The family of this 85-nucleotide RNA sequence from Tenuibacillus multivorans is "c-di-GMP-I riboswitch aptamer". It scores 83 bits against the family's covariance model. NCBI's taxonomy places the organism under Bacteria, Bacillati, Bacilli, Bacillaceae, Tenuibacillus. The base pairs follow the family's consensus structure, which is taken from published work.
[Rfam]
RNA sequence: CCUUCGAAAAGGCAAACUUGCUGAAAGGCAAGGACGCAAAGCCCUAGGUCUAAGGCAUUAUUGCUAAGAUUGCUAGGUUACCGAA
Numbered sequence: 001c002c003u004u005c006g007a008a009a010a011g012g013c014a015a016a017c018u019u020g021c022u023g024a025a026a027g028g029c030a031a032g033g034a035c036g037c038a039a040a041g042c043c044c045u046a047g048g049u050c051u052a053a054g055g056c057a058u059u060a061u062u063g064c065u066a067a068g069a070u071u072g073c074u075a076g077g078u079u080a081c082c083g084a085a
Stems, first nucleotide, its partner, number of pairs: 012037002017032006040079004045075003048070003055064003